[Rfam]
RNA sequence: GCGUUAAUGCUAAGUGUGAUAGGGGUUUUAAUGCUAACAGACUCCUACAUGUUAGCAUUAUCAC
Numbered sequence: 001g002c003g004u005u006a007a008u009g010c011u012a013a014g015u016g017u018g019a020u021a022g023g024g025g026u027u028u029u030a031a032u033g034c035u036a037a038c039a040g041a042c043u044c045c046u047a048c049a050u051g052u053u054a055g056c057a058u059u060a061u062c063a064c
Stems, first nucleotide, its partner, number of pairs: 005060009020047004025042003
Dot-bracket structure: ....(((((((((......((((.(((............))).))))....)))))))))....
A member of the RNA family "mir-155 microRNA precursor family" from Leptobrachium leishanense, 64 nucleotides long.
NCBI's taxonomy places the organism under Eukaryota, Vertebrata, Euteleostomi, Sarcopterygii, Leptobrachium.
Rfam 15.1 lists 647 matches to the family in 617 species.
The family's consensus secondary structure was predicted with RNAalifold.